[Rfam]
RNA sequence: GUUACCAUGUGCUACUGGCGAUGAAACGUGGGUCACCACGGGGGAGCUCAUGGAUAUAUAAGCCGUUCGCCUGGGCAAAGUGU
Numbered sequence: 001g002u003u004a005c006c007a008u009g010u011g012c013u014a015c016u017g018g019c020g021a022u023g024a025a026a027c028g029u030g031g032g033u034c035a036c037c038a039c040g041g042g043g044g045a046g047c048u049c050a051u052g053g054a055u056a057u058a059u060a061a062g063c064c065g066u067u068c069g070c071c072u073g074g075g076c077a078a079a080g081u082g083u
Stems, first nucleotide, its partner, number of pairs: 005053005011047002015043002017071005028039004062076003
A member of the RNA family "ZMP/ZTP riboswitch aptamer (pfl RNA motif)" from Paenibacillus zeisoli, 83 nucleotides long.
Gene Ontology terms of the family: one-carbon metabolic process and regulation of purine nucleotide biosynthetic process.
Lineage of the source: Bacteria > Bacillati > Bacillota > Caryophanales > Paenibacillus.